[Rfam]
RNA: Purine riboswitch aptamer
Organism: Priestia koreensis
RNA sequence: UGAAAAUUAUUUAUCAUCCUUCGUAUAUCCUCGAUAAUAUGGUUCGAGAGUCUCUACCGGGUUACCAUUAAUAACCUGACUAUGAAGGCAGAUGAUUCUAUG
Numbered sequence: 001u002g003a004a005a006a007u008u009a010u011u012u013a014u015c016a017u018c019c020u021u022c023g024u025a026u027a028u029c030c031u032c033g034a035u036a037a038u039a040u041g042g043u044u045c046g047a048g049a050g051u052c053u054c055u056a057c058c059g060g061g062u063u064a065c066c067a068u069u070a071a072u073a074a075c076c077u078g079a080c081u082a083u084g085a086a087g088g089c090a091g092a093u094g095a096u097u098c099u100a101u102g
Stems, first nucleotide, its partner, number of pairs: 018088008030048005058078007